A member of the RNA family "glmS glucosamine-6-phosphate activated ribozyme aptamer" from Polycladomyces abyssicola, 159 nucleotides long.
About the family: This entry contains a glucosamine-6-phosphate activated ribozyme that is found in the mRNA for GlmS. GlmS is an enzyme that uses fructose-6-phosphate and glutamine to generate glucosamine-6-phosphate. The ribozyme catalyses self cleavage of the glmS mRNA that is thought to regulate GlmS activity.
RNA sequence: UUUUGUCGUCAAGCGCCAGGACUGCCGGUAAAGGCAGUUGACGAGGUGGAGGACGAUCGAUUUUUCGGCGGAUACCUCCCGGCCCGGCAUCGGGGCCGCCGAGCCGAAACACAAAAGGAUGAGGCGACUCGUCCCACAAAGGUUUCGGCACGAUGCCGC
Numbered sequence: 001u002u003u004u005g006u007c008g009u010c011a012a013g014c015g016c017c018a019g020g021a022c023u024g025c026c027g028g029u030a031a032a033g034g035c036a037g038u039u040g041a042c043g044a045g046g047u048g049g050a051g052g053a054c055g056a057u058c059g060a061u062u063u064u065u066c067g068g069c070g071g072a073u074a075c076c077u078c079c080c081g082g083c084c085c086g087g088c089a090u091c092g093g094g095g096c097c098g099c100c101g102a103g104c105c106g107a108a109a110c111a112c113a114a115a116a117g118g119a120u121g122a123g124g125c126g127a128c129u130c131g132u133c134c135c136a137c138a139a140a141g142g143u144u145u146c147g148g149c150a151c152g153a154u155g156c157c158g159c
Stems, first nucleotide, its partner, number of pairs: 020039007048079005057068004080098006103149007117134007